The record is a 102-nucleotide RNA from Klebsiella indica, which matches "TPP riboswitch aptamer (THI element)" in Rfam.
The base pairs follow the family's consensus structure, which is taken from published work.
Its family is annotated with thiamine pyrophosphate binding in the Gene Ontology.
The match comes from Rfam's covariance-model search (78 bits).
RNA sequence: GGGCCAACCGAGGGGUGUCCUGUAAGGACUGAGAUGGCGCGAGCCGAACCCUUUGAACCUGAUCUGGGUCAUGCCAGCGAAGGGACGGGUCGGCAUUUUCGC
Numbered sequence: 001g002g003g004c005c006a007a008c009c010g011a012g013g014g015g016u017g018u019c020c021u022g023u024a025a026g027g028a029c030u031g032a033g034a035u036g037g038c039g040c041g042a043g044c045c046g047a048a049c050c051c052u053u054u055g056a057a058c059c060u061g062a063u064c065u066g067g068g069u070c071a072u073g074c075c076a077g078c079g080a081a082g083g084g085a086c087g088g089g090u091c092g093g094c095a096u097u098u099u100c101g102c
Base pairs, nucleotide, nucleotide: 006090008088009087010086011052012051013050014049016046017029018028019027020026021025036045037044038043058083059082060081064077065076066075067074